The record is a 71-nucleotide RNA sequence from Intrasporangium chromatireducens, which matches "tRNA" in Rfam. The base pairs follow the family's consensus structure, which is taken from published work. Lineage of the source: Bacteria > Actinomycetes > Micrococcales > Intrasporangium > Intrasporangium chromatireducens.

RNA sequence: GCGAGCGUAGCUCAAUGGUAGAGCGCCAGCUUCCCAAGCUGGAUACGCGGGUUCGAUUCCCGUCGCUCGCU
Numbered sequence: 001g002c003g004a005g006c007g008u009a010g011c012u013c014a015a016u017g018g019u020a021g022a023g024c025g026c027c028a029g030c031u032u033c034c035c036a037a038g039c040u041g042g043a044u045a046c047g048c049g050g051g052u053u054c055g056a057u058u059c060c061c062g063u064c065g066c067u068c069g070c071u
Stems, first nucleotide, its partner, number of pairs: 001070007010024004026042005047063005